Source information:
Shown here is an 85-nucleotide RNA from Aotus nancymaae, a member of the family "mir-571 microRNA precursor family". Lineage of the source: Eukaryota > Vertebrata > Amniota > Primates > Aotus. Gene Ontology terms of the family: RISC complex and miRNA-mediated post-transcriptional gene silencing. The base pairs follow the family's consensus structure, which was predicted with RNAalifold.
[Rfam]
RNA sequence: UGUGGGACCAAGUUGGGUGGGCCAUUUUCUGGUCUGUAGUUAAGAAUAGGGGUCCCGUAGUUUGCCACCUGAAUGAGAGCCUGCA
Numbered sequence: 001u002g003u004g005g006g007a008c009c010a011a012g013u014u015g016g017g018u019g020g021g022c023c024a025u026u027u028u029c030u031g032g033u034c035u036g037u038a039g040u041u042a043a044g045a046a047u048a049g050g051g052g053u054c055c056c057g058u059a060g061u062u063u064g065c066c067a068c069c070u071g072a073a074u075g076a077g078a079g080c081c082u083g084c085a
Stems, first nucleotide, its partner, number of pairs: 001085004006080001009077001012074003016070002018067002021065002024062001026060002032053004037048002